[Rfam]
RNA sequence: GGUGUGCGAUACACUUACCUCCACGUGGUGCACCCUGGGCAACGUAUAUUCAUACGGCAAACAAGUCUAU
Numbered sequence: 001g002g003u004g005u006g007c008g009a010u011a012c013a014c015u016u017a018c019c020u021c022c023a024c025g026u027g028g029u030g031c032a033c034c035c036u037g038g039g040c041a042a043c044g045u046a047u048a049u050u051c052a053u054a055c056g057g058c059a060a061a062c063a064a065g066u067c068u069a070u
Stems, first nucleotide, its partner, number of pairs: 001036002004033004017029003043056005